The family of this 84-nucleotide RNA sequence from Bombyx mori is "mir-2807 microRNA precursor family". The base pairs follow the family's consensus structure, which was predicted with RNAalifold. NCBI's taxonomy places the organism under Eukaryota, Bilateria, Hexapoda, Endopterygota, Bombyx. Rfam links the family to the GO terms RISC complex and miRNA-mediated post-transcriptional gene silencing. The match comes from Rfam's covariance-model search (66 bits).

[Rfam]
RNA sequence: UUAAGCCAAUUUUGUAUGCAGUUGGAACAGCGCCCCUAGCGGCAAACGCAGGCAAAUGUUUCAACUCCAUACAAAUAUGAGGUA
Numbered sequence: 001u002u003a004a005g006c007c008a009a010u011u012u013u014g015u016a017u018g019c020a021g022u023u024g025g026a027a028c029a030g031c032g033c034c035c036c037u038a039g040c041g042g043c044a045a046a047c048g049c050a051g052g053c054a055a056a057u058g059u060u061u062c063a064a065c066u067c068c069a070u071a072c073a074a075a076u077a078u079g080a081g082g083u084a
Base pairs, nucleotide, nucleotide: 008078011075012074013073014072015071016070018068020066021065022064023063024062025061026060027059028058029057034052035051039047